mir-4857 microRNA precursor family: a 78-nucleotide RNA sequence from Branchiostoma floridae. Rfam 15.1 lists 3 matches to the family in 3 species. The source organism's lineage runs through Eukaryota, Opisthokonta, Deuterostomia, Cephalochordata and Branchiostoma.

Nucleotides: 078
Base pairs, nucleotide, nucleotide: 002078003077004076005074006073007072008071011067012066013065014064015063016062017061018060020059021058022057023056024055026053027052028051029050030049031048032047033044034043035042036041
Number, partner (000 for none) and nucleotide at each position: 001000c002078c003077g004076u005074g006073g007072u008071c009000a010000c011067g012066a013065u014064g015063u016062u017061u018060u019000u020059g021058u022057c023056u024055g025000c026053u027052c028051c029050a030049g031048a032047g033044g034043u035042g036041a037000g038000u039000u040000a041036u042035u043034a044033c045000g046000a047032c048031u049030u050029u051028g052027g053026g054000a055024c056023a057022g058021a059020c060018g061017a062016a063015a064014c065013a066012u067011c068000u069000c070000a071008g072007a073006c074005c075000a076004a077003c078002g